[Rfam]
RNA: tRNA
RNA sequence: GCCCGAGUGGUGAAAUCGGUAGACACAACAGAUUUAAAAUCUGUCGCUCUUUGGGGCGUGCCGGUUCAAGUCCGGCCUCGGGCA
Numbered sequence: 001g002c003c004c005g006a007g008u009g010g011u012g013a014a015a016u017c018g019g020u021a022g023a024c025a026c027a028a029c030a031g032a033u034u035u036a037a038a039a040u041c042u043g044u045c046g047c048u049c050u051u052u053g054g055g056g057c058g059u060g061c062c063g064g065u066u067c068a069a070g071u072c073c074g075g076c077c078u079c080g081g082g083c084a
Base pairs, nucleotide, nucleotide: 001083002082003081004080005079006078007077010026011025012024028044029043030042031041032040060076061075062074063073064072